Annotation
The record is a 114-nucleotide sequence from Poecilia formosa, which matches "Potassium channel RNA editing signal" in Rfam. By type it is a cis-regulatory element. For this family Rfam cites "Control of human potassium channel inactivation by editing of a small mRNA hairpin" (Bhalla et al., Nat Struct Mol Biol, 2004). The match comes from Rfam's covariance-model search (95 bits). The base pairs follow the family's consensus structure, which is taken from published work. Taxonomically the source falls in Poecilia (Eukaryota, Teleostei, Neoteleostei, Poeciliidae).
[Rfam]
RNA sequence: GUGGGCUACGGCGACAUGAAGCCAAUCACUGUCGGUGGGAAGAUAGUGGGCUCCCUUUGCGCGAUCGCGGGCGUGUUGACCAUCGCGCUUCCUGUGCCCGUGAUAGUGUCCAAC
Numbered sequence: 001g002u003g004g005g006c007u008a009c010g011g012c013g014a015c016a017u018g019a020a021g022c023c024a025a026u027c028a029c030u031g032u033c034g035g036u037g038g039g040a041a042g043a044u045a046g047u048g049g050g051c052u053c054c055c056u057u058u059g060c061g062c063g064a065u066c067g068c069g070g071g072c073g074u075g076u077u078g079a080c081c082a083u084c085g086c087g088c089u090u091c092c093u094g095u096g097c098c099c100g101u102g103a104u105a106g107u108g109u110c111c112a113a114c
Base pairs, nucleotide, nucleotide: 001114002113004111005110007108008107009106011104014101015100018097020095037077038076040074050062051061